[Rfam]
RNA: bantam microRNA precursor family
Organism: Chionoecetes opilio
RNA sequence: CACCUUCGACGAAACUGGUUUUCACAAUGAUUUGCCAGAUACAUUUGGUUCUGAGAUCAUUGUGAAAGCUGAUUUCGUAUU
Dot-bracket structure: ........((((((.((((((((((..((((((....................))))))..)))))))))).))))))...